[Rfam]
RNA: Small nucleolar RNA SNORA8
RNA sequence: UGCGCUGUGUGCUAUCUGCACCCAGCAGUAUCUUCCUGAUGGGGCGUUCAAAAAACAGUGCCAUAGUAUUGGCAACAGCUGGCAUUGUUGGUUUUCACACAGAUGUGCUGGUUAAACUUGGUAUUUCUGUUGAAACAAGU
Dot-bracket structure: .((((((.......(.(((.((((.(((.......))).).))).))....).).))))))..(((.(.(..(((.....(((((...................)))))........)))..).).)))...........